This 122-nucleotide sequence from Nannospalax galili belongs to the Rfam family "Small nucleolar RNA SNORA61". The family has 25 seed sequences and 881 matches in Rfam 15.1. The family's RNA type in Rfam is H/ACA-box small nucleolar RNA. A search with the family's covariance model found it, with a score of 80 bits. The organism belongs to Nannospalax, within Eukaryota. The base pairs follow the family's consensus structure, which was predicted with PFOLD. From the family's description: ACA61 is a member of the H/ACA class of snoRNA that guide the sites of modification of uridines to pseudouridines.
RNA sequence: UCCCUUUCUCCUUUCCCAUCGGAUCUCAACUCUGGUCUUGGUGGUCAUAGAGGGAGAGCGUGCUGAGGCUGGCCUCACAGCCAGCCCUCUGGUGUCAGCACGUGGGCUGGAUUCAAACAUGG
Numbered sequence: 001u002c003c004c005u006u007u008c009u010c011c012u013u014u015c016c017c018a019u020c021g022g023a024u025c026u027c028a029a030c031u032c033u034g035g036u037c038u039u040g041g042u043g044g045u046c047a048u049a050g051a052g053g054g055a056g057a058g059c060g061u062g063c064u065g066a067g068g069c070u071g072g073c074c075u076c077a078c079a080g081c082c083a084g085c086c087c088u089c090u091g092g093u094g095u096c097a098g099c100a101c102g103u104g105g106g107c108u109g110g111a112u113u114c115a116a117a118c119a120u121g122g
Stems, first nucleotide, its partner, number of pairs: 001055003016044005022037004069110007084099002